[Rfam]
RNA: mir-344 microRNA precursor family
Organism: Mesocricetus auratus
RNA sequence: UUUCCAGUCAUGCUCCUGUCUGAAAUCCAGCUCUUAGCUGGAUUCAGGCAAAGCUUGACAUUAAC
Numbered sequence: 001u002u003u004c005c006a007g008u009c010a011u012g013c014u015c016c017u018g019u020c021u022g023a024a025a026u027c028c029a030g031c032u033c034u035u036a037g038c039u040g041g042a043u044u045c046a047g048g049c050a051a052a053g054c055u056u057g058a059c060a061u062u063a064a065c
Base pairs, nucleotide, nucleotide: 007059008058009057012054013053014052017050018049019048020047021046022045023044024043027041028040029039030038031037